Mammalian CPEB3 ribozyme: a 72-nucleotide RNA sequence from Crocodylus porosus. The match comes from Rfam's covariance-model search (40 bits). For this family Rfam cites "A genomewide search for ribozymes reveals an HDV-like sequence in the human CPEB3 gene" (Salehi-Ashtiani et al., Science, 2006). Rfam's curators write: The mammalian CPEB3 ribozyme is a self cleaving RNA located in the second intron of the CPEB3 gene which belongs to a family of genes regulating messenger RNA polyadenylation. This ribozyme is highly conserved and found only in mammals. The CPEB3 ribozyme is structurally and biochemically related to the human hepatitis delta virus (HDV) ribozyme and the HDV ribozyme is proposed to have arisen from the human transcriptome.
RNA sequence: UAAGUUUGUAGCCAUAGCAGAAGCACUCAUGGUGUGGCCCUUUCAGAUUUCAAUGAACCUGCAAAUCCUGCU
Numbered sequence: 001u002a003a004g005u006u007u008g009u010a011g012c013c014a015u016a017g018c019a020g021a022a023g024c025a026c027u028c029a030u031g032g033u034g035u036g037g038c039c040c041u042u043u044c045a046g047a048u049u050u051c052a053a054u055g056a057a058c059c060u061g062c063a064a065a066u067c068c069u070g071c072u
Stems, first nucleotide, its partner, number of pairs: 008040001011038003016072005022066001023035003044061003048057003